[Rfam]
RNA: RT-2 RNA
RNA sequence: AUCGGCCAGACCGAGUAGGCGGCGAACCGCCGCCGAAAGCCGUGCCUCAAAGGAAGGAAGCUGCAACCAUCGGCGCAUAUCGCCGUAAAUAUGCACCCCGCGAGGAGCGGCGAACGCUGCUUGCAUGGCGGCGCCCUCGGGCGCUCGGCGCCGUUUCAUGCCGCCACCUCAAAGCAACUGUCCGAGCGUCCAUUGAGAGUUGUGCGGGGUGCCCUAUGAAAUCAGAAGAACG
Numbered sequence: 001a002u003c004g005g006c007c008a009g010a011c012c013g014a015g016u017a018g019g020c021g022g023c024g025a026a027c028c029g030c031c032g033c034c035g036a037a038a039g040c041c042g043u044g045c046c047u048c049a050a051a052g053g054a055a056g057g058a059a060g061c062u063g064c065a066a067c068c069a070u071c072g073g074c075g076c077a078u079a080u081c082g083c084c085g086u087a088a089a090u091a092u093g094c095a096c097c098c099c100g101c102g103a104g105g106a107g108c109g110g111c112g113a114a115c116g117c118u119g120c121u122u123g124c125a126u127g128g129c130g131g132c133g134c135c136c137u138c139g140g141g142c143g144c145u146c147g148g149c150g151c152c153g154u155u156u157c158a159u160g161c162c163g164c165c166a167c168c169u170c171a172a173a174g175c176a177a178c179u180g181u182c183c184g185a186g187c188g189u190c191c192a193u194u195g196a197g198a199g200u201u202g203u204g205c206g207g208g209g210u211g212c213c214c215u216a217u218g219a220a221a222u223c224a225g226a227a228g229a230a231c232g
Base pairs, nucleotide, nucleotide: 004046005045006044019033020032021031022030023029024028071085072084073083074082093212094211095210096209097208098207099206100205101204102170103169104168105167107164108163109162110161111160116124117123127155128154129153130152131151132150133149134148135147174203175202176201177200178199181192